The family of this 449-nucleotide RNA sequence from Natrinema salifodinae is "Archaeal RNase P". About the family: Ribonuclease P (RNase P) is a ubiquitous endoribonuclease, found in archaea, bacteria and eukarya as well as chloroplasts and mitochondria. The source organism's lineage runs through Archaea, Halobacteria, Halobacteriales, Natrialbaceae and Natrinema.
[Rfam]
RNA sequence: GGGAGAGAGAGCCUGGCUGCCGCGGUGGCCGCGCCGGUGACGGCGCGCCCACACAACGUUGCCCGACUCCCCGAGUCGAGCAGCGCUCGCGAGGAAAGUCCCCCCACCUGUUCGGGCAGGUGACCGGACGCAAGUCCGGAGCGGGAGACCGCUGGCUCUGGAACAGAAACGACACGUCUCGGCCCGACCGAUGAUGCGCGCGAACCCGACCGAGAGGAAGGGGAGUUGACCCGCAGAGGGCGUGUGGUCGUCUACUCACGGUUCGAACCCGUGGAUCACGCCUGGCGUGAUCGGCCACACGGAGACGGCCGAGGAUCGAUGGAACGGCGAACCCUCACCGGUGCAAGUCCGCGCCGUGGUAGCCCGAACACCCCGCGGCGCCGCCGCGGACGGCGCGGACGCUCAGCCGAAUGCCGGGACGAACAGAAGGGGGCUUACUCCUCUCACCC
Numbered sequence: 001g002g003g004a005g006a007g008a009g010a011g012c013c014u015g016g017c018u019g020c021c022g023c024g025g026u027g028g029c030c031g032c033g034c035c036g037g038u039g040a041c042g043g044c045g046c047g048c049c050c051a052c053a054c055a056a057c058g059u060u061g062c063c064c065g066a067c068u069c070c071c072c073g074a075g076u077c078g079a080g081c082a083g084c085g086c087u088c089g090c091g092a093g094g095a096a097a098g099u100c101c102c103c104c105c106a107c108c109u110g111u112u113c114g115g116g117c118a119g120g121u122g123a124c125c126g127g128a129c130g131c132a133a134g135u136c137c138g139g140a141g142c143g144g145g146a147g148a149c150c151g152c153u154g155g156c157u158c159u160g161g162a163a164c165a166g167a168a169a170c171g172a173c174a175c176g177u178c179u180c181g182g183c184c185c186g187a188c189c190g191a192u193g194a195u196g197c198g199c200g201c202g203a204a205c206c207c208g209a210c211c212g213a214g215a216g217g218a219a220g221g222g223g224a225g226u227u228g229a230c231c232c233g234c235a236g237a238g239g240g241c242g243u244g245u246g247g248u249c250g251u252c253u254a255c256u257c258a259c260g261g262u263u264c265g266a267a268c269c270c271g272u273g274g275a276u277c278a279c280g281c282c283u284g285g286c287g288u289g290a291u292c293g294g295c296c297a298c299a300c301g302g303a304g305a306c307g308g309c310c311g312a313g314g315a316u317c318g319a320u321g322g323a324a325c326g327g328c329g330a331a332c333c334c335u336c337a338c339c340g341g342u343g344c345a346a347g348u349c350c351g352c353g354c355c356g357u358g359g360u361a362g363c364c365c366g367a368a369c370a371c372c373c374c375g376c377g378g379c380g381c382c383g384c385c386g387c388g389g390a391c392g393g394c395g396c397g398g399a400c401g402c403u404c405a406g407c408c409g410a411a412u413g414c415c416g417g418g419a420c421g422a423a424c425a426g427a428a429g430g431g432g433g434c435u436u437a438c439u440c441c442u443c444u445c446a447c448c449c
Base pairs, nucleotide, nucleotide: 001449002448003447005445006444007443008442009441010439011438012418013417014416015415016414017413021091022090023089024088025087096436097435098434100433101432102431103430104429105343106342107341108340119339120338121337122336123335124139125138126137127136128135140153141152142151143150144149154334155333159330161328175318176317178313179312180311181310182309183308184307347400348399349398350397351396352395353394354393355392356391357390
On this family, see Frank and Pace, Annu Rev Biochem 1998: "Ribonuclease P: unity and diversity in a tRNA processing ribozyme". The family's RNA type in Rfam is ribozyme.